[Rfam]
RNA sequence: GAAAGGCCGUUUAGCAUGCGGCUGGAUGCGUCAUACCGGCAUCCCAAUUAGG
Numbered sequence: 001g002a003a004a005g006g007c008c009g010u011u012u013a014g015c016a017u018g019c020g021g022c023u024g025g026a027u028g029c030g031u032c033a034u035a036c037c038g039g040c041a042u043c044c045c046a047a048u049u050a051g052g
Base pairs, nucleotide, nucleotide: 005023006022007021008020009019010018024044025043026042027041028040029039